[Rfam]
RNA: Potassium channel RNA editing signal
RNA sequence: AUAGAUAUGGUGAUAUGUCUCCACAAACAUCAAUGGGAAGAAUUGUUGGUAGUUUAUGUGCUAUAAUGGGAGUUUUAACAAUAGCAUUACCUGUACCAGUUAUUGUGUCUAAU
Numbered sequence: 001a002u003a004g005a006u007a008u009g010g011u012g013a014u015a016u017g018u019c020u021c022c023a024c025a026a027a028c029a030u031c032a033a034u035g036g037g038a039a040g041a042a043u044u045g046u047u048g049g050u051a052g053u054u055u056a057u058g059u060g061c062u063a064u065a066a067u068g069g070g071a072g073u074u075u076u077a078a079c080a081a082u083a084g085c086a087u088u089a090c091c092u093g094u095a096c097c098a099g100u101u102a103u104u105g106u107g108u109c110u111a112a113u
Base pairs, nucleotide, nucleotide: 001113002112003110004109006107007106008105009104010103012101013100014099017096018095020093036076037075038074039073048062049061050060